[Rfam]
RNA sequence: CGCCGGAUGCCGCCGAGUCGCACCCGCCCCGGUGGGGCGAGCCGGGGACCCAACCCGUAUCACUGGGGUGAGUCCCAUCCGCCGAGCCAGGCUCGGCGGUGGGUAGGGCCUGAUCCCCGCCCGAACCCGUCAGCUAACCCGGUAGGCGGCCCUGGGAGAACGG
Numbered sequence: 001c002g003c004c005g006g007a008u009g010c011c012g013c014c015g016a017g018u019c020g021c022a023c024c025c026g027c028c029c030c031g032g033u034g035g036g037g038c039g040a041g042c043c044g045g046g047g048a049c050c051c052a053a054c055c056c057g058u059a060u061c062a063c064u065g066g067g068g069u070g071a072g073u074c075c076c077a078u079c080c081g082c083c084g085a086g087c088c089a090g091g092c093u094c095g096g097c098g099g100u101g102g103g104u105a106g107g108g109c110c111u112g113a114u115c116c117c118c119g120c121c122c123g124a125a126c127c128c129g130u131c132a133g134c135u136a137a138c139c140c141g142g143u144a145g146g147c148g149g150c151c152c153u154g155g156g157a158g159a160a161c162g163g
Base pairs, nucleotide, nucleotide: 011148012147013146014145018040019039020038041143042142043141044140045139046138051065052064066128067127068126074103075102076101077100078099079098106122107121108120109119